[Rfam]
RNA sequence: GAAUGAGAUGAUGAUGUUAUCGCUUCCCUAUUGGUUUGAUUGCCAAUAUGAUGGCAAUACUGGCAUGCUCUGGCUGAUCAUUC
Numbered sequence: 001g002a003a004u005g006a007g008a009u010g011a012u013g014a015u016g017u018u019a020u021c022g023c024u025u026c027c028c029u030a031u032u033g034g035u036u037u038g039a040u041u042g043c044c045a046a047u048a049u050g051a052u053g054g055c056a057a058u059a060c061u062g063g064c065a066u067g068c069u070c071u072g073g074c075u076g077a078u079c080a081u082u083c
Base pairs, nucleotide, nucleotide: 002082003081004080005079041056042055043054044053
Dot-bracket structure: .((((...................................((((........))))......................)))).
Rfam assigns this 83-nucleotide sequence from Nelumbo nucifera to the family "Small nucleolar RNA Z102/R77". Rfam 15.1 lists 1,346 matches to the family in 224 species. On this family, see Barneche et al., J Mol Biol 2001: "Identification of 66 box C/D snoRNAs in Arabidopsis thaliana: extensive gene duplications generated multiple isoforms predicting new ribosomal RNA 2'-O-methylation sites".